[Rfam]
RNA sequence: UGGGGAACACUUAGAACCCCACGUACAGAAGUGUUAAUAGCGGUGCUUUUGGCCGAACAUCGUGGUUAGUGAAUC
Numbered sequence: 001u002g003g004g005g006a007a008c009a010c011u012u013a014g015a016a017c018c019c020c021a022c023g024u025a026c027a028g029a030a031g032u033g034u035u036a037a038u039a040g041c042g043g044u045g046c047u048u049u050u051g052g053c054c055g056a057a058c059a060u061c062g063u064g065g066u067u068a069g070u071g072a073a074u075c
Stems, first nucleotide, its partner, number of pairs: 001021005034069005040063006047056002

Notes: L13-Bacteroidia ribosomal protein leader: a 75-nucleotide sequence. Rfam classes the family as a cis-regulatory leader. Pairs were carried over by alignment from the consensus structure, which is taken from published work. For this family Rfam cites "Discovery of 20 novel ribosomal leader candidates in bacteria and archaea" (Eckert and Weinberg, BMC Microbiol, 2020).